Background:
This 112-nucleotide RNA from Geotrypetes seraphini belongs to the Rfam family "Small nucleolar RNA SNORD67". About the family: snoRNA HBII-166 belongs to the C/D family of snoRNAs.

RNA sequence: AGUGAGAAUGAUGAGUUGCACAUUGGUGGAACUGCGGUGUCUGGGGACACUUCGUUCUGCUCAGACUAUCCCUGCUGACAAAACAAAGUGCACAGGGGCCAUCUGACUCAUU
Number, nucleotide and partner (000 for none) at each position: 001a000002g000003u000004g111005a000006g109007a108008a000009u000010g000011a000012u000013g000014a000015g000016u000017u000018g000019c000020a000021c000022a000023u064024u063025g062026g060027u059028g058029g057030a000031a055032c054033u000034g000035c000036g000037g050038u049039g048040u047041c046042u000043g000044g000045g000046g041047a040048c039049a038050c037051u000052u000053c000054g032055u031056u000057c029058u028059g027060c026061u000062c025063a024064g023065a000066c000067u000068a000069u000070c000071c000072c000073u000074g000075c000076u000077g000078a000079c000080a000081a000082a000083a000084c000085a000086a000087a000088g000089u000090g000091c000092a000093c000094a000095g000096g000097g000098g000099c000100c000101a000102u000103c000104u000105g000106a000107c000108u007109c006110a000111u004112u000

Notes:
A reference for the family is Huttenhofer et al. (2001), "RNomics: an experimental approach that identifies 201 candidates for novel, small, non-messenger RNAs in mouse", EMBO J. It scores 93 bits against the family's covariance model. By type it is a C/D-box small nucleolar RNA.